mir-3473 microRNA precursor family: an 83-nucleotide RNA from Microtus ochrogaster. Rfam 15.1 lists 1,094 matches to the family in 20 species.
RNA sequence: ACCACUGAGCCAUCUCUCCAGCCCCCACAUAUGACUUUUGUAAUUAAAAUAAUUUAGAGGGGCUGGAGAGAUGGCUCAGUGGU
Numbered sequence: 001a002c003c004a005c006u007g008a009g010c011c012a013u014c015u016c017u018c019c020a021g022c023c024c025c026c027a028c029a030u031a032u033g034a035c036u037u038u039u040g041u042a043a044u045u046a047a048a049a050u051a052a053u054u055u056a057g058a059g060g061g062g063c064u065g066g067a068g069a070g071a072u073g074g075c076u077c078a079g080u081g082g083u
Stems, first nucleotide, its partner, number of pairs: 002082023